[Rfam]
RNA sequence: UGGAUCUUUGUGUGUUUUAUUUAACCUUUGGACAAAAAAAAAAAAAUAGGUAUAAUAAAUAAAUCCUCUUUUGUAACUCAGAACUCAUUGUUCAUUAUGAGUUUUGAUACACAUAAGAAAGAAUAUU
Numbered sequence: 001u002g003g004a005u006c007u008u009u010g011u012g013u014g015u016u017u018u019a020u021u022u023a024a025c026c027u028u029u030g031g032a033c034a035a036a037a038a039a040a041a042a043a044a045a046a047u048a049g050g051u052a053u054a055a056u057a058a059a060u061a062a063a064u065c066c067u068c069u070u071u072u073g074u075a076a077c078u079c080a081g082a083a084c085u086c087a088u089u090g091u092u093c094a095u096u097a098u099g100a101g102u103u104u105u106g107a108u109a110c111a112c113a114u115a116a117g118a119a120a121g122a123a124u125a126u127u
Stems, first nucleotide, its partner, number of pairs: 001054002004051004009046001011044001015037004020032001025030001063124002066121002069118005079106010